[Rfam]
RNA sequence: GGUUUCCGUUAGUGCAAAUUCAAUCACUUCAAUUUUGAAUUUGAAUUCAAGAUGAGAAAAAAUUCCUCAUUGGUAACAAAUGGUUAUCCAUUAAGCGGGGAAAUCCUAU
Numbered sequence: 001g002g003u004u005u006c007c008g009u010u011a012g013u014g015c016a017a018a019u020u021c022a023a024u025c026a027c028u029u030c031a032a033u034u035u036u037g038a039a040u041u042u043g044a045a046u047u048c049a050a051g052a053u054g055a056g057a058a059a060a061a062a063u064u065c066c067u068c069a070u071u072g073g074u075a076a077c078a079a080a081u082g083g084u085u086a087u088c089c090a091u092u093a094a095g096c097g098g099g100g101a102a103a104u105c106c107u108a109u
Stems, first nucleotide, its partner, number of pairs: 009023002012020001065100004069091002072088006
Record summary:
A member of the RNA family "Plastid-rps12 3UTR RNA" from Heteropyxis natalensis, 109 nucleotides long. Taxonomically the source falls in Heteropyxis (Eukaryota, Streptophyta, Magnoliopsida, Psiloxyloideae). Plastid rpl20 is a non-coding RNA (ncRNA) recognised in plastids. It was found in the three prime untranslated region (3UTR) of rps12 gene, its 3UTR location sugest a role in transcript maduration. The base pairs follow the family's consensus structure, which was predicted with LocARNA. The literature on the family includes a 2023 paper in Plant Commun by Richter et al., "Retrograde signaling in plants: A critical review focusing on the GUN pathway and beyond".